[Rfam]
RNA sequence: CGUCGGAGAGAGAUAACAGGCUUUGGCUUUUUAUGUAUUUUAUUAGUCAGUCUUUUUCUCUCUCCUAUU
Number, nucleotide and partner (000 for none) at each position: 001c000002g068003u067004c000005g065006g064007a063008g062009a000010g060011a059012g058013a057014u000015a000016a055017c000018a053019g052020g051021c050022u049023u000024u000025g000026g047027c046028u045029u000030u000031u000032u000033a000034u000035g000036u000037a000038u000039u000040u000041u000042a000043u000044u000045a028046g027047u026048c000049a022050g021051u020052c019053u018054u000055u016056u000057u013058c012059u011060c010061u000062c008063u007064c006065c005066u000067a003068u002069u000
Shown here is a 69-nucleotide RNA sequence from Acyrthosiphon pisum, a member of the family "mir-14 microRNA precursor family". The family's consensus secondary structure was predicted with RNAalifold. The literature on the family includes a 2009 paper in BMC Genomics by Li et al., "Direct sequencing and expression analysis of a large number of miRNAs in Aedes aegypti and a multi-species survey of novel mosquito miRNAs". Its family is annotated with RISC complex and miRNA-mediated post-transcriptional gene silencing in the Gene Ontology.